[Rfam]
RNA sequence: GGCCUAAAGCGCCCGUAGCCGGCUCGGCAAGUCUCCUCCUAAAUCCUCGGGCUCAACCCGAGGAUUGGAGGAGAUACUGCCGAGCUAGGGGGUGGGAGAGGCCGAGGGUACUCCCGGGGUAGGGGCGAAAUCCUAUAAUCCCGGGAGGACCACCAGUGGCGAAGGCGCUCGGCUGGAACACGCCCGACGGUGAGGGGCGAAAGCCGGGGGAGCGAACCGGAUUAGAUACCCGGGUAGUCCCGGCUGUAAACGAUGCGGGCUAGGUGUUGGGUGGGCCUAGAGCCCACCCAGUGCCGCAGGGAAGCCGUUAAGCCCGCCGCCUGGGGAGUACGGCCGCAAGGCUGAAACUCAAAGGAAU
Numbered sequence: 001g002g003c004c005u006a007a008a009g010c011g012c013c014c015g016u017a018g019c020c021g022g023c024u025c026g027g028c029a030a031g032u033c034u035c036c037u038c039c040u041a042a043a044u045c046c047u048c049g050g051g052c053u054c055a056a057c058c059c060g061a062g063g064a065u066u067g068g069a070g071g072a073g074a075u076a077c078u079g080c081c082g083a084g085c086u087a088g089g090g091g092g093u094g095g096g097a098g099a100g101g102c103c104g105a106g107g108g109u110a111c112u113c114c115c116g117g118g119g120u121a122g123g124g125g126c127g128a129a130a131u132c133c134u135a136u137a138a139u140c141c142c143g144g145g146a147g148g149a150c151c152a153c154c155a156g157u158g159g160c161g162a163a164g165g166c167g168c169u170c171g172g173c174u175g176g177a178a179c180a181c182g183c184c185c186g187a188c189g190g191u192g193a194g195g196g197g198c199g200a201a202a203g204c205c206g207g208g209g210g211a212g213c214g215a216a217c218c219g220g221a222u223u224a225g226a227u228a229c230c231c232g233g234g235u236a237g238u239c240c241c242g243g244c245u246g247u248a249a250a251c252g253a254u255g256c257g258g259g260c261u262a263g264g265u266g267u268u269g270g271g272u273g274g275g276c277c278u279a280g281a282g283c284c285c286a287c288c289c290a291g292u293g294c295c296g297c298a299g300g301g302a303a304g305c306c307g308u309u310a311a312g313c314c315c316g317c318c319g320c321c322u323g324g325g326g327a328g329u330a331c332g333g334c335c336g337c338a339a340g341g342c343u344g345a346a347a348c349u350c351a352a353a354g355g356a357a358u
Stems, first nucleotide, its partner, number of pairs: 001321003009318001011198004016192001018191003022085007030078002032074008045063007089185003092181003100174007107151002111147008122133003159166002203244006212238002217233004255317006263295014299306002323350003332343004
Source information: Rfam assigns this 358-nucleotide part of an RNA from Desulfurococcus amylolyticus to the family "Archaeal small subunit ribosomal RNA". It is one of the family's seed sequences.